[Rfam]
RNA: MIR9563 microRNA precursor family
Organism: Brassica carinata
RNA sequence: UUAAUAUAAAAACACGUCUCUUAACUUUUAACUAAAAAAGUUAAGAAUCAGCUCUUAAAUUUUAAGAGCCGGUUCUUAGUUUUUUUAGUUAAAAGUUAAGAGACGGGUUUUUAUAUUAA
Numbered sequence: 001u002u003a004a005u006a007u008a009a010a011a012a013c014a015c016g017u018c019u020c021u022u023a024a025c026u027u028u029u030a031a032c033u034a035a036a037a038a039a040g041u042u043a044a045g046a047a048u049c050a051g052c053u054c055u056u057a058a059a060u061u062u063u064a065a066g067a068g069c070c071g072g073u074u075c076u077u078a079g080u081u082u083u084u085u086u087a088g089u090u091a092a093a094a095g096u097u098a099a100g101a102g103a104c105g106g107g108u109u110u111u112u113a114u115a116u117u118a119a
Stems, first nucleotide, its partner, number of pairs: 001119013015105025041079007